[Rfam]
RNA sequence: GAUAGGACCCUGUCGCUAGAGUGAUUGGACACUGACACAGAGUCAACUAACCUUGUGCGCGCGGUUCUUCGGGUGAACCGCGGCGGUCCGAGCCACGAGGGGGGAGGCUCGGACCGCCGCUG
Numbered sequence: 001g002a003u004a005g006g007a008c009c010c011u012g013u014c015g016c017u018a019g020a021g022u023g024a025u026u027g028g029a030c031a032c033u034g035a036c037a038c039a040g041a042g043u044c045a046a047c048u049a050a051c052c053u054u055g056u057g058c059g060c061g062c063g064g065u066u067c068u069u070c071g072g073g074u075g076a077a078c079c080g081c082g083g084c085g086g087u088c089c090g091a092g093c094c095a096c097g098a099g100g101g102g103g104g105a106g107g108c109u110c111g112g113a114c115c116g117c118c119g120c121u122g
Stems, first nucleotide, its partner, number of pairs: 001014005015051001017049002021032003033045004058075003062071003082118013096103001

Rfam assigns this 122-nucleotide RNA sequence from Streptomyces turgidiscabies to the family "Streptomyces RNA 3920". The match comes from Rfam's covariance-model search (113 bits). About the family: Identified by deep sequencing of transcriptome at the end of exponential growth phase. Sequencing size consistent with northern blot size. Streptomyces specific. The literature on the family includes a 2011 paper in RNA Biol by Vockenhuber et al., "Deep sequencing-based identification of small non-coding RNAs in Streptomyces coelicolor".